[Rfam]
RNA sequence: AGCUUUGUGCAGUGGCAGUAUCAUAGCCAAUGAGGUUUAUCCGAGGCAUGAUUAUUGCUAAUUGAAAAUUUUCCUAAUACCCUGCCAUGAAGACUUGAAAUAUAGUUGGCAUUGGCAAUUUUUGAGAGUCUCUAUGGAGA
Numbered sequence: 001a002g003c004u005u006u007g008u009g010c011a012g013u014g015g016c017a018g019u020a021u022c023a024u025a026g027c028c029a030a031u032g033a034g035g036u037u038u039a040u041c042c043g044a045g046g047c048a049u050g051a052u053u054a055u056u057g058c059u060a061a062u063u064g065a066a067a068a069u070u071u072u073c074c075u076a077a078u079a080c081c082c083u084g085c086c087a088u089g090a091a092g093a094c095u096u097g098a099a100a101u102a103u104a105g106u107u108g109g110c111a112u113u114g115g116c117a118a119u120u121u122u123u124g125a126g127a128g129u130c131u132c133u134a135u136g137g138a139g140a
Stems, first nucleotide, its partner, number of pairs: 020052005026047003034042002084116003087112003092107004129140004
The record is a 140-nucleotide RNA sequence from Phocoena sinus, which matches "U4 spliceosomal RNA" in Rfam. Pairs were carried over by alignment from the consensus structure, which is taken from published work. Rfam 15.1 lists 32,178 matches to the family in 2,547 species. Rfam's curators write: U4 small nuclear RNA (U4 snRNA) is a component of the major U2-dependent spliceosome.